[Rfam]
RNA sequence: GAAGUGCCUGCCCGGUAAAGUCUGGUCAACAGCCGGAAGCGAGUCUUGCGCGUUAGGAAGUGAUUUCUGGCGCGAAGCGUAGACAGCGAGUGCAAAAGCUGUGUGAUUGAGCCUCGAAAAACACUCGUUGGAGCCUUCGUCUUUGACGCGGCGGGGGCACAGUACAAGGGUACUAUAUAUUGACCUGGUACCUUUGUCCGGCCGGGGUCUUAGAGCA
Dot-bracket structure: ...........(((((...((..[.[..)).)))))..((..(((((((((((((((((....)))))))))))...)).)))).)).....................(.((((((..........(((((((((..((((........))))..)))......(((((((((((......].].))))))))))))))))))))))))........
RNA: Group II catalytic intron D1-D4-6
Organism: Thermanaerosceptrum fracticalcis